[Rfam]
This 75-nucleotide RNA sequence from Alpharetrovirus avirousar belongs to the Rfam family "Rous sarcoma virus (RSV) primer binding site (PBS)". Rfam's curators put it in the seed alignment. About the family: This family represents a structured region around the Rous sarcoma virus primer binding site (PBS). This region is known to be required for the efficient initiation of reverse transcription. Rfam links the family to the GO term regulation of reverse transcription. A reference for the family is Johnson et al. (2004), "Selection of functional mutations in the U5-IR stem and loop regions of the Rous sarcoma virus genome", BMC Biol. The base pairs follow the family's consensus structure, which is taken from published work. The family has 22 seed sequences and 69 matches in Rfam 15.1. The organism belongs to Alpharetrovirus avirousar, within Viruses.
RNA sequence: AUUCCCUAACGAUUGCGAACACCUGAAUGAAGCAGAAGGCUUCAUUUGGUGACCCCGACGUGAUCGUUAGGGAAU
Numbered sequence: 001a002u003u004c005c006c007u008a009a010c011g012a013u014u015g016c017g018a019a020c021a022c023c024u025g026a027a028u029g030a031a032g033c034a035g036a037a038g039g040c041u042u043c044a045u046u047u048g049g050u051g052a053c054c055c056c057g058a059c060g061u062g063a064u065c066g067u068u069a070g071g072g073a074a075u
Stems, first nucleotide, its partner, number of pairs: 003073008027045007